[Rfam]
RNA: Acido-Lenti-1 RNA
RNA sequence: CCCAGGGCGUUGCCCUGGGCUGAUAUGUAUCGCCCUUUCAGGGCU
Dot-bracket structure: ((((((((...))))))))............(((((...))))).